Background:
The record is an 87-nucleotide sequence from Acaryochloris thomasi, which matches "c-di-GMP-I riboswitch aptamer" in Rfam.

[Rfam]
RNA sequence: UCCUCGAAAAGGCAACUUGUCCCGAAAGGGCAAAGCGCAAAUUAGUGAGCCUAAGCUUUUAUUGGUAAGGCUGUCAUUAAUUCCGAA
Numbered sequence: 001u002c003c004u005c006g007a008a009a010a011g012g013c014a015a016c017u018u019g020u021c022c023c024g025a026a027a028g029g030g031c032a033a034a035g036c037g038c039a040a041a042u043u044a045g046u047g048a049g050c051c052u053a054a055g056c057u058u059u060u061a062u063u064g065g066u067a068a069g070g071c072u073g074u075c076a077u078u079a080a081u082u083c084c085g086a087a
Stems, first nucleotide, its partner, number of pairs: 012038002017033004022029002041081004046076003049071003056065002

The source organism's lineage runs through Bacteria, Cyanophyceae, Acaryochloridales, Acaryochloris and Acaryochloris thomasi.